[Rfam]
RNA sequence: CUUGGGGGGAGGGGGUCCCUCAGCCUGGAUUACAAGAGGGCACAUGCCAGGCUGAGGGACCCCACUGGUGCUUG
Numbered sequence: 001c002u003u004g005g006g007g008g009g010a011g012g013g014g015g016u017c018c019c020u021c022a023g024c025c026u027g028g029a030u031u032a033c034a035a036g037a038g039g040g041c042a043c044a045u046g047c048c049a050g051g052c053u054g055a056g057g058g059a060c061c062c063c064a065c066u067g068g069u070g071c072u073u074g
Stems, first nucleotide, its partner, number of pairs: 004071001006069001009066001012063014027048002031044001
Dot-bracket structure: ...(.(..(..((((((((((((((.((..(............)..)).))))))))))))))..)..).)...
RNA: mir-9193 microRNA precursor family
Organism: Cnephaeus nilssonii